[Rfam]
RNA: msiK RNA
RNA sequence: GGACUAGACCUUUACUCGGAUCGUCCGGCACGUUCCUGCCGGUGAAGGGACUGUAC
Numbered sequence: 001g002g003a004c005u006a007g008a009c010c011u012u013u014a015c016u017c018g019g020a021u022c023g024u025c026c027g028g029c030a031c032g033u034u035c036c037u038g039c040c041g042g043u044g045a046a047g048g049g050a051c052u053g054u055a056c
Base pairs, nucleotide, nucleotide: 009048010047011046012045013044014043025042026041027040028039029038030037